[Rfam]
RNA sequence: AAUCCUGGGUUAAAUUAAGCCCCUUAUAGUAGUAAUACUUUAAUGCAAAUAGGGAAAAUUGCAAGAAAAUCUCUAAUUAAUGAGAUAAUUUGCAGCGGAGCUUGAUUCGGUGAAUCUUUUUAAAGAGUGAAUCAAGAACGUUCAACGACUAAUCGGUGAGCUUCACUAGCAAUAAUCCGGACACGAUAACCCUACAACCAAUAAAUUAUUUUACUUGGUUGAUGACAUAGUCUAAGCCCAAUGGUGACAUUGGG
Numbered sequence: 001a002a003u004c005c006u007g008g009g010u011u012a013a014a015u016u017a018a019g020c021c022c023c024u025u026a027u028a029g030u031a032g033u034a035a036u037a038c039u040u041u042a043a044u045g046c047a048a049a050u051a052g053g054g055a056a057a058a059u060u061g062c063a064a065g066a067a068a069a070u071c072u073c074u075a076a077u078u079a080a081u082g083a084g085a086u087a088a089u090u091u092g093c094a095g096c097g098g099a100g101c102u103u104g105a106u107u108c109g110g111u112g113a114a115u116c117u118u119u120u121u122a123a124a125g126a127g128u129g130a131a132u133c134a135a136g137a138a139c140g141u142u143c144a145a146c147g148a149c150u151a152a153u154c155g156g157u158g159a160g161c162u163u164c165a166c167u168a169g170c171a172a173u174a175a176u177c178c179g180g181a182c183a184c185g186a187u188a189a190c191c192c193u194a195c196a197a198c199c200a201a202u203a204a205a206u207u208a209u210u211u212u213a214c215u216u217g218g219u220u221g222a223u224g225a226c227a228u229a230g231u232c233u234a235a236g237c238c239c240a241a242u243g244g245u246g247a248c249a250u251u252g253g254g
Base pairs, nucleotide, nucleotide: 007022008021009020010019011018028039029038030037050194051193052192053191060094061093062092063091064090065089070085071084072083073082095141096140102134108129109128111126145233147232148231149230150229151228197219198218199217200216201215204212205211239252240251241250242249243248